The family of this 171-nucleotide RNA from Tripterygium wilfordii is "MIR168 microRNA precursor family". On this family, see Reinhart et al., Genes Dev 2002: "MicroRNAs in plants". The family has 10 seed sequences and 518 matches in Rfam 15.1.

[Rfam]
RNA sequence: UUGCCGGCGGUCUCUGAUUCGCUUGGUGCAGCUCGGGAACUGAUUGGCCACUGACCAGUGUUUGUUUCUCUUAAGGAGGAUCGUUGUUCAAGGUUUUUGGUGACAUUAGGCUGGAGUGGCUUGUCGGUUCCCGCCUUGCAUCAACUGAAUCGGAGACCGCGAGCGGUGAAG
Numbered sequence: 001u002u003g004c005c006g007g008c009g010g011u012c013u014c015u016g017a018u019u020c021g022c023u024u025g026g027u028g029c030a031g032c033u034c035g036g037g038a039a040c041u042g043a044u045u046g047g048c049c050a051c052u053g054a055c056c057a058g059u060g061u062u063u064g065u066u067u068c069u070c071u072u073a074a075g076g077a078g079g080a081u082c083g084u085u086g087u088u089c090a091a092g093g094u095u096u097u098u099g100g101u102g103a104c105a106u107u108a109g110g111c112u113g114g115a116g117u118g119g120c121u122u123g124u125c126g127g128u129u130c131c132c133g134c135c136u137u138g139c140a141u142c143a144a145c146u147g148a149a150u151c152g153g154a155g156a157c158c159g160c161g162a163g164c165g166g167u168g169a170a171g
Stems, first nucleotide, its partner, number of pairs: 013154002017150004023144009034133005040127005
Dot-bracket structure: ............((..((((..(((((((((..(((((.(((((..............................................................................))))).)))))..)))))))))..))))..)).................